[Rfam]
RNA sequence: AGAGAUUUUUGGUCACAGGAGAGAUGGCAACAACUGUUGACGCAAUUGCAGUACAGUUAGUGCCAUCUCUCCUGCGAACAUAAAUCCCC
Numbered sequence: 001a002g003a004g005a006u007u008u009u010u011g012g013u014c015a016c017a018g019g020a021g022a023g024a025u026g027g028c029a030a031c032a033a034c035u036g037u038u039g040a041c042g043c044a045a046u047u048g049c050a051g052u053a054c055a056g057u058u059a060g061u062g063c064c065a066u067c068u069c070u071c072c073u074g075c076g077a078a079c080a081u082a083a084a085u086c087c088c089c
Stems, first nucleotide, its partner, number of pairs: 002088001004086001006084003010080002013077002016074014032058006
Overview:
This 89-nucleotide RNA from Malus baccata belongs to the Rfam family "MIR3627 microRNA precursor family". The base pairs follow the family's consensus structure, which was predicted with RNAalifold. Taxonomically the source falls in Malus (Eukaryota, Streptophytina, Pentapetalae, Amygdaloideae). Its family is annotated with miRNA-mediated post-transcriptional gene silencing and RISC complex in the Gene Ontology. The family has 5 seed sequences and 24 matches in Rfam 15.1.